[Rfam]
RNA: MIR8562 microRNA precursor family
RNA sequence: UUUUCUACAAAUCGGAAUGACCUGAAAUUUGGAGCAUGUGUUUAUCAAAAGUAGGAGAAUCUACGAAAAAUGUCAAAAAAACAUUUUACAUGAAAAAAUUGACCAAAAUACCUCCGAAAAUUUUUGGGGGUAUUUUGGUCAAUUUUUUUUUCUUGAAUUAUUUUUUUGUACAUUUUUAUUAGGUUUGCCUCACUAAGAUGUACACAUGCUCCAAAUUUCAGGUCAUUCUGAUUUGUAAAAAA
Numbered sequence: 001u002u003u004u005c006u007a008c009a010a011a012u013c014g015g016a017a018u019g020a021c022c023u024g025a026a027a028u029u030u031g032g033a034g035c036a037u038g039u040g041u042u043u044a045u046c047a048a049a050a051g052u053a054g055g056a057g058a059a060u061c062u063a064c065g066a067a068a069a070a071u072g073u074c075a076a077a078a079a080a081a082c083a084u085u086u087u088a089c090a091u092g093a094a095a096a097a098a099u100u101g102a103c104c105a106a107a108a109u110a111c112c113u114c115c116g117a118a119a120a121u122u123u124u125u126g127g128g129g130g131u132a133u134u135u136u137g138g139u140c141a142a143u144u145u146u147u148u149u150u151u152c153u154u155g156a157a158u159u160a161u162u163u164u165u166u167u168g169u170a171c172a173u174u175u176u177u178a179u180u181a182g183g184u185u186u187g188c189c190u191c192a193c194u195a196a197g198a199u200g201u202a203c204a205c206a207u208g209c210u211c212c213a214a215a216u217u218u219c220a221g222g223u224c225a226u227u228c229u230g231a232u233u234u235g236u237a238a239a240a241a242a
Stems, first nucleotide, its partner, number of pairs: 001242004006237029036207006043200003061182003066177008075167006095146019116123002
Dot-bracket structure: ((((.(((((((((((((((((((((((((((((.((((((.(((...............(((..((((((((.((((((..............(((((((((((((((((((..((....))....)))))))))))))))))))...............))))))..))))))))..)))...............))).)))))).))))))))))))))))))))))))))))).))))